A member of the RNA family "RNase MRP" from Raphanus sativus, 241 nucleotides long. It scores 72 bits against the family's covariance model. The base pairs follow the family's consensus structure, which is taken from published work. Rfam classes the family as a ribozyme.

[Rfam]
RNA sequence: CAGUCAGUGGAAGAAGUGAUUGGGCUAUGGGCUUGUCAAAGCUCGGGCCCUGGAAAGUCGCCGGGCCACCAUUCCGCAGAGAUGCGGCCUCGGUAACGAGUGAGUCUUGUGCUUGGGAGACGUUAUGGCUGAGACACGUGUAUGGAGCCUGUCUCUCGAGCCAAGAUAUUAUGGCCAAUUUAACAGUAAUUCACUUCCCUAAUGCGGGAUUAAUACAGAACGGGGCUUACUUCCACUGACA
Numbered sequence: 001c002a003g004u005c006a007g008u009g010g011a012a013g014a015a016g017u018g019a020u021u022g023g024g025c026u027a028u029g030g031g032c033u034u035g036u037c038a039a040a041g042c043u044c045g046g047g048c049c050c051u052g053g054a055a056a057g058u059c060g061c062c063g064g065g066c067c068a069c070c071a072u073u074c075c076g077c078a079g080a081g082a083u084g085c086g087g088c089c090u091c092g093g094u095a096a097c098g099a100g101u102g103a104g105u106c107u108u109g110u111g112c113u114u115g116g117g118a119g120a121c122g123u124u125a126u127g128g129c130u131g132a133g134a135c136a137c138g139u140g141u142a143u144g145g146a147g148c149c150u151g152u153c154u155c156u157c158g159a160g161c162c163a164a165g166a167u168a169u170u171a172u173g174g175c176c177a178a179u180u181u182a183a184c185a186g187u188a189a190u191u192c193a194c195u196u197c198c199c200u201a202a203u204g205c206g207g208g209a210u211u212a213a214u215a216c217a218g219a220a221c222g223g224g225g226c227u228u229a230c231u232u233c234c235a236c237u238g239a240c241a
Stems, first nucleotide, its partner, number of pairs: 003240009014196006022050004029044006055228003059225001061223002075086004089100004104167003111161005118156003127149003136143001198208001